Overview
Rfam assigns this 45-nucleotide RNA sequence from Saccharopolyspora montiporae to the family "L31-Actinobacteria ribosomal protein leader". The source organism's lineage runs through Bacteria, Bacillati, Actinomycetota, Pseudonocardiaceae and Saccharopolyspora. Pairs were carried over by alignment from the consensus structure, which is taken from published work. It is annotated as a cis-regulatory leader.
[Rfam]
RNA sequence: ACGGCUCCGGUUCACCGCGCGGCGAGACGUGCGGACCCGGCGGCC
Numbered sequence: 001a002c003g004g005c006u007c008c009g010g011u012u013c014a015c016c017g018c019g020c021g022g023c024g025a026g027a028c029g030u031g032c033g034g035a036c037c038c039g040g041c042g043g044c045c
Base pairs, nucleotide, nucleotide: 003045004044005043007040008039009038010037015034016033017032018031019030020029021028